[Rfam]
RNA sequence: CCGCCCCCGACGACAAGGUAGCCAGUUGAGGCUGCCUUCCUCUUACGAGGAUAGUCGGGGGCGUUUUA
Number, nucleotide and partner (000 for none) at each position: 001c000002c063003g062004c061005c060006c059007c058008c057009g056010a055011c054012g000013a000014c000015a000016a000017g036018g035019u034020a033021g032022c031023c030024a000025g000026u000027u000028g000029a000030g023031g022032c021033u020034g019035c018036c017037u000038u051039c050040c049041u048042c047043u000044u000045a000046c000047g042048a041049g040050g039051a038052u000053a000054g011055u010056c009057g008058g007059g006060g005061g004062c003063g002064u000065u000066u000067u000068a000